About this RNA: Shown here is a 99-nucleotide sequence from Paenibacillus sp. FSL R5-0912, a member of the family "Purine riboswitch aptamer". NCBI's taxonomy places the organism under Bacteria, Bacillati, Bacilli, Caryophanales, Paenibacillus. The match comes from Rfam's covariance-model search (70 bits). Riboswitches are metabolite binding domains within certain messenger RNAs that serve as precision sensors for their corresponding targets. Allosteric rearrangement of mRNA structure is mediated by ligand binding, and this results in modulation of gene expression.
[Rfam]
RNA sequence: AAGCAAUUGAAUAGUCCUUUUCGUAUAUCCUUAAUAAUUGGUUUAAGGGUCUCUACCGGGAACCGUAAAUUUCUGGCUACGAAAAUAUGCUGAGGCAUA
Numbered sequence: 001a002a003g004c005a006a007u008u009g010a011a012u013a014g015u016c017c018u019u020u021u022c023g024u025a026u027a028u029c030c031u032u033a034a035u036a037a038u039u040g041g042u043u044u045a046a047g048g049g050u051c052u053c054u055a056c057c058g059g060g061a062a063c064c065g066u067a068a069a070u071u072u073c074u075g076g077c078u079a080c081g082a083a084a085a086u087a088u089g090c091u092g093a094g095g096c097a098u099a
Stems, first nucleotide, its partner, number of pairs: 018085008029048006057075006

Pairs were carried over by alignment from the consensus structure, which is taken from published work.